[Rfam]
RNA sequence: AAUGAAUGAUGACACUUUGUUUCGGUCCCAGAUGAAGAAAUGAUUACUUUUUCCCAAAGCUGACAUU
Numbered sequence: 001a002a003u004g005a006a007u008g009a010u011g012a013c014a015c016u017u018u019g020u021u022u023c024g025g026u027c028c029c030a031g032a033u034g035a036a037g038a039a040a041u042g043a044u045u046a047c048u049u050u051u052u053c054c055c056a057a058a059g060c061u062g063a064c065a066u067u
Base pairs, nucleotide, nucleotide: 001067002066003065004064